[Rfam]
RNA sequence: AUAUGAGUGGUUCGCGAAAAUCCCACUUAAAAAAACUAGAAAGAG
Numbered sequence: 001a002u003a004u005g006a007g008u009g010g011u012u013c014g015c016g017a018a019a020a021u022c023c024c025a026c027u028u029a030a031a032a033a034a035a036c037u038a039g040a041a042a043g044a045g
Base pairs, nucleotide, nucleotide: 006027007026008025009024010023016037
Notes:
This 45-nucleotide RNA from Ligilactobacillus araffinosus belongs to the Rfam family "PreQ1 (pre queuosine) riboswitch aptamer". Taxonomically the source falls in Ligilactobacillus araffinosus (Bacteria, Bacilli, Lactobacillaceae, Ligilactobacillus). The family has 43 seed sequences and 873 matches in Rfam 15.1. A reference for the family is Reader et al. (2004), "Identification of four genes necessary for biosynthesis of the modified nucleoside queuosine", J Biol Chem. Its family is annotated with queuosine biosynthetic process in the Gene Ontology.